[Rfam]
RNA sequence: UGUUGAUCAGUUGGCAAGAUGUCGGCAUAGCUGAAGUUCGGCCAUGUGCGCCAUUCCGUUGGGUAGCGGCUAUGCUGCAUCUAGUCAAUUAUUUCUACG
Numbered sequence: 001u002g003u004u005g006a007u008c009a010g011u012u013g014g015c016a017a018g019a020u021g022u023c024g025g026c027a028u029a030g031c032u033g034a035a036g037u038u039c040g041g042c043c044a045u046g047u048g049c050g051c052c053a054u055u056c057c058g059u060u061g062g063g064u065a066g067c068g069g070c071u072a073u074g075c076u077g078c079a080u081c082u083a084g085u086c087a088a089u090u091a092u093u094u095c096u097a098c099g
Base pairs, nucleotide, nucleotide: 005094006093009090010089011088012087013086014085015084017082018081019080020079021078023077024076025075026074027073028072029071030070031069032068033067
RNA: mir-31 microRNA precursor family